[Rfam]
RNA sequence: GCGGAUGGCUGGAUGGCCGCGGGCCGAUACCUUUUGGACUUCGGCGCGAGGAAAGUCCGGACUCCAUCAAGCAACGGUGCCGGGUAACGCCCGGCGGGGGCAACCCCAGGGAUAGCGCCACAGAGAACAGACCGCCCCGUAUAUCGGGGUAAGGGUGAAACGGUGGAGUAAGAGCCCACCGCGCGACUGGCAACAGAAGCGGCACGGCAAGCCCCACCGGGAGCAACGCCAAAUAGGGACCUCGCGCGGGGACUGUGUGUGCAAACAUACCGCUCGCAGGGUCGCUUGAGCCCGAGAGGUCCGGGUUGGCAGCUUGAGUGCACUGGUAACAGUGUGCCUAGAGGAAUGGUCAUCGACGGGGGUCUCCCCCUGAACAAAAUCCGGCUUACAGGCCGUCCGCGCAA
Numbered sequence: 001g002c003g004g005a006u007g008g009c010u011g012g013a014u015g016g017c018c019g020c021g022g023g024c025c026g027a028u029a030c031c032u033u034u035u036g037g038a039c040u041u042c043g044g045c046g047c048g049a050g051g052a053a054a055g056u057c058c059g060g061a062c063u064c065c066a067u068c069a070a071g072c073a074a075c076g077g078u079g080c081c082g083g084g085u086a087a088c089g090c091c092c093g094g095c096g097g098g099g100g101c102a103a104c105c106c107c108a109g110g111g112a113u114a115g116c117g118c119c120a121c122a123g124a125g126a127a128c129a130g131a132c133c134g135c136c137c138c139g140u141a142u143a144u145c146g147g148g149g150u151a152a153g154g155g156u157g158a159a160a161c162g163g164u165g166g167a168g169u170a171a172g173a174g175c176c177c178a179c180c181g182c183g184c185g186a187c188u189g190g191c192a193a194c195a196g197a198a199g200c201g202g203c204a205c206g207g208c209a210a211g212c213c214c215c216a217c218c219g220g221g222a223g224c225a226a227c228g229c230c231a232a233a234u235a236g237g238g239a240c241c242u243c244g245c246g247c248g249g250g251g252a253c254u255g256u257g258u259g260u261g262c263a264a265a266c267a268u269a270c271c272g273c274u275c276g277c278a279g280g281g282u283c284g285c286u287u288g289a290g291c292c293c294g295a296g297a298g299g300u301c302c303g304g305g306u307u308g309g310c311a312g313c314u315u316g317a318g319u320g321c322a323c324u325g326g327u328a329a330c331a332g333u334g335u336g337c338c339u340a341g342a343g344g345a346a347u348g349g350u351c352a353u354c355g356a357c358g359g360g361g362g363u364c365u366c367c368c369c370c371u372g373a374a375c376a377a378a379a380u381c382c383g384g385c386u387u388a389c390a391g392g393c394c395g396u397c398c399g400c401g402c403a404a
Base pairs, nucleotide, nucleotide: 001400002399003398004397005396006395007394008393009392010391011389012354013353014352015351016350017349018348020048021047023045024044025043026042027041053387054386055385057384058383059382060381061380062223063222064221065220070287071286075219076218077217078216079215080094081093082092083091084090095109096107097106098105099104110214111213115212116211117208118207119206132154133153134150135149136148137147138146139145162180163179164178165177166176181203182201183200184199187196188195189194228310229309230308237302238301239300240299241298242297280293281292283290318337319336320335321334322333323332324331325330
RNA: Bacterial RNase P class A